RNA sequence: AAAGGCUGCAUGGGAGAGAUCGGCCGUCAUCGAAAAGAUGAUGGAGUCGACGCCGACGGAGCAACUCCCCAGGAAACUCUCAGGCAAAGUGACCAUGCAGUUGAA
Number, nucleotide and partner (000 for none) at each position: 001a000002a000003a000004g000005g000006c100007u099008g098009c097010a096011u095012g094013g093014g000015a000016g000017a000018g000019a000020u050021c049022g048023g047024c000025c000026g000027u000028c000029a000030u000031c000032g000033a000034a000035a000036a000037g000038a000039u000040g000041a000042u000043g000044g000045a000046g000047u023048c022049g021050a020051c000052g085053c084054c083055g081056a080057c000058g000059g079060a078061g077062c000063a000064a000065c072066u071067c000068c000069c000070c000071a066072g065073g000074a000075a000076a000077c061078u060079c059080u056081c055082a000083g054084g053085c052086a000087a000088a000089g000090u000091g000092a000093c013094c012095a011096u010097g009098c008099a007100g006101u000102u000103g000104a000105a000
Rfam assigns this 105-nucleotide RNA from Aquamicrobium sp. LC103 to the family "Glycine riboswitch aptamer". The match comes from Rfam's covariance-model search (66 bits). The pairing is the family consensus, mapped onto this sequence. The source organism's lineage runs through Bacteria, Pseudomonadota, Hyphomicrobiales, Phyllobacteriaceae and Aquamicrobium.